[Rfam]
RNA: Mammalian CPEB3 ribozyme
Organism: Alligator mississippiensis
RNA sequence: ACAAAAUCAGUUGAGGCCAUAGCAGAAGCGCUCAUGGCAUGGCCAUGUCAGAUUCCAAUGAAUCUGCAAAUUCUGCU
Numbered sequence: 001a002c003a004a005a006a007u008c009a010g011u012u013g014a015g016g017c018c019a020u021a022g023c024a025g026a027a028g029c030g031c032u033c034a035u036g037g038c039a040u041g042g043c044c045a046u047g048u049c050a051g052a053u054u055c056c057a058a059u060g061a062a063u064c065u066g067c068a069a070a071u072u073c074u075g076c077u
Stems, first nucleotide, its partner, number of pairs: 015044004021077007028040001030038001049066007
Dot-bracket structure: ..............[[[[..((((((((.(.......).)]]]]....(((((((....)))))))....)))))))